[Rfam]
RNA: malK-I RNA
RNA sequence: AGGAGCAGCCCGUUGCCACUCCACUUUUCUGGCGCGGGGGCAAAAAAAAGGAGGUUUAAUUUAAACCCGUUGCGGUUUACGGUGCGGCAUUGUGGAGACAUGCCGUAAGGCGGCCAUGAAGUAAUCGCGUGGCGGCGAGGGAAGCGGCAGGCGAGCCCUGCGUUUUUCAAAACCGGUCAAAAUGGCA
Dot-bracket structure: ........((((.(((((...........)))))))))............................[[[[..((((((]]]]((((((((.((....))))))))))..((.((((((.........)))))).))..((((((((...((....))...)))))))).))))))............
Numbered sequence: 001a002g003g004a005g006c007a008g009c010c011c012g013u014u015g016c017c018a019c020u021c022c023a024c025u026u027u028u029c030u031g032g033c034g035c036g037g038g039g040g041c042a043a044a045a046a047a048a049a050g051g052a053g054g055u056u057u058a059a060u061u062u063a064a065a066c067c068c069g070u071u072g073c074g075g076u077u078u079a080c081g082g083u084g085c086g087g088c089a090u091u092g093u094g095g096a097g098a099c100a101u102g103c104c105g106u107a108a109g110g111c112g113g114c115c116a117u118g119a120a121g122u123a124a125u126c127g128c129g130u131g132g133c134g135g136c137g138a139g140g141g142a143a144g145c146g147g148c149a150g151g152c153g154a155g156c157c158c159u160g161c162g163u164u165u166u167u168c169a170a171a172a173c174c175g176g177u178c179a180a181a182a183u184g185g186c187a
Stems, first nucleotide, its partner, number of pairs: 009038004014034005067082004073175006083107008092099002110136002113133006139168008150157002